[Rfam]
RNA sequence: GUGCCAUGAUGUAACUGUCAACACAUCAUUCUGAAGAAUUGUGUGGACACCUGUAAUUGAGCACC
Numbered sequence: 001g002u003g004c005c006a007u008g009a010u011g012u013a014a015c016u017g018u019c020a021a022c023a024c025a026u027c028a029u030u031c032u033g034a035a036g037a038a039u040u041g042u043g044u045g046g047a048c049a050c051c052u053g054u055a056a057u058u059g060a061g062c063a064c065c
Stems, first nucleotide, its partner, number of pairs: 001064004